[Rfam]
RNA sequence: AAUCUUUAUACAUAAGGAACUUCGUUAAUUUAUUUUAGUGAUAUUUAUUAAAUUUUACGAAAGGGCCUUAUUUUUUUAAAGUAUUUCAAUGUGAAAUUACAUAUAAACAUAAAGUUUUUGGCGAGACUCUUGAGGGAACAGGUCAAGCUGAAGACUACAGGUUGAAGCUGUCCCCUAAGAAAGCGAGAAAACAAUACGAAGUAUUAUAAAUAAAGAAGCCAGUAA
Numbered sequence: 001a002a003u004c005u006u007u008a009u010a011c012a013u014a015a016g017g018a019a020c021u022u023c024g025u026u027a028a029u030u031u032a033u034u035u036u037a038g039u040g041a042u043a044u045u046u047a048u049u050a051a052a053u054u055u056u057a058c059g060a061a062a063g064g065g066c067c068u069u070a071u072u073u074u075u076u077u078a079a080a081g082u083a084u085u086u087c088a089a090u091g092u093g094a095a096a097u098u099a100c101a102u103a104u105a106a107a108c109a110u111a112a113a114g115u116u117u118u119u120g121g122c123g124a125g126a127c128u129c130u131u132g133a134g135g136g137a138a139c140a141g142g143u144c145a146a147g148c149u150g151a152a153g154a155c156u157a158c159a160g161g162u163u164g165a166a167g168c169u170g171u172c173c174c175c176u177a178a179g180a181a182a183g184c185g186a187g188a189a190a191a192c193a194a195u196a197c198g199a200a201g202u203a204u205u206a207u208a209a210a211u212a213a214a215g216a217a218g219c220c221a222g223u224a225a
Base pairs, nucleotide, nucleotide: 005210006209007208008207009206010205022041023040024039025038026037027036028035044063045062046061048060049059050056051055082203083202084201085200086199087198091100092099093098102111103110104109114197115196117194118193119191128180129179130178131177133176134175135174136173138171139170141168146163147162148161149160
RNA: S. aureus tsr24 small RNA
Organism: Staphylococcus epidermidis